Description
The family of this 135-nucleotide sequence from Desulfitobacterium dichloroeliminans is "Molybdenum/Tungsten riboswitch aptamer (Moco RNA motif)". The match comes from Rfam's covariance-model search (72 bits). NCBI's taxonomy places the organism under Bacteria, Bacillati, Eubacteriales, Desulfitobacterium, Desulfitobacterium dichloroeliminans.
[Rfam]
RNA sequence: AAUAUAUAAUAGCCCGAGCCUAAUAGCCUAAGGGUUUUUCUAUGGUGUUAGGCCGUUUCAGUUUUACUGAAACCGGGGUGUGUUUAGAAAUGAACAUGCCUUCAGUAUACGAAAAGGAGGACAUAUCAAUGCAAA
Numbered sequence: 001a002a003u004a005u006a007u008a009a010u011a012g013c014c015c016g017a018g019c020c021u022a023a024u025a026g027c028c029u030a031a032g033g034g035u036u037u038u039u040c041u042a043u044g045g046u047g048u049u050a051g052g053c054c055g056u057u058u059c060a061g062u063u064u065u066a067c068u069g070a071a072a073c074c075g076g077g078g079u080g081u082g083u084u085u086a087g088a089a090a091u092g093a094a095c096a097u098g099c100c101u102u103c104a105g106u107a108u109a110c111g112a113a114a115a116g117g118a119g120g121a122c123a124u125a126u127c128a129a130u131g132c133a134a135a
Stems, first nucleotide, its partner, number of pairs: 003129001006126001013119001014117002018053007026046003032041003055073007076101011102112002